[Rfam]
A member of the RNA family "Lysine riboswitch aptamer" from Gallibacterium salpingitidis, 170 nucleotides long. Pairs were carried over by alignment from the consensus structure, which is taken from published work. It scores 97 bits against the family's covariance model. NCBI's taxonomy places the organism under Bacteria, Pseudomonadati, Pseudomonadota, Pasteurellales, Gallibacterium.
RNA sequence: UACUGCAGGAGAGGCGCGGAACUCAGGUCGUUAUUUUUAGGUCUGGAGCCAGUGAGAAAUAAUCAGGGGAGUUUCGCCGAGAUAAACAAUUUUCCAGAGAGUUGUUUAUCGGCUAUUAGGGCUGAAUCCCUAAGGCUGUCAUCGGUAAACGAUGGAGGGCUUCUGAACAU
Numbered sequence: 001u002a003c004u005g006c007a008g009g010a011g012a013g014g015c016g017c018g019g020a021a022c023u024c025a026g027g028u029c030g031u032u033a034u035u036u037u038u039a040g041g042u043c044u045g046g047a048g049c050c051a052g053u054g055a056g057a058a059a060u061a062a063u064c065a066g067g068g069g070a071g072u073u074u075c076g077c078c079g080a081g082a083u084a085a086a087c088a089a090u091u092u093u094c095c096a097g098a099g100a101g102u103u104g105u106u107u108a109u110c111g112g113c114u115a116u117u118a119g120g121g122c123u124g125a126a127u128c129c130c131u132a133a134g135g136c137u138g139u140c141a142u143c144g145g146u147a148a149a150c151g152a153u154g155g156a157g158g159g160c161u162u163c164u165g166a167a168c169a170u
Base pairs, nucleotide, nucleotide: 006165007164008163009162010161011160016077017076018075019074020073021072022071023070024069030063031062032061033060034059035058036057037056081110082109083108084107085106086105087104088103089102090101091100092099111137112136113135114134116133117132118131119130120129121128139155140154141153142152143151144150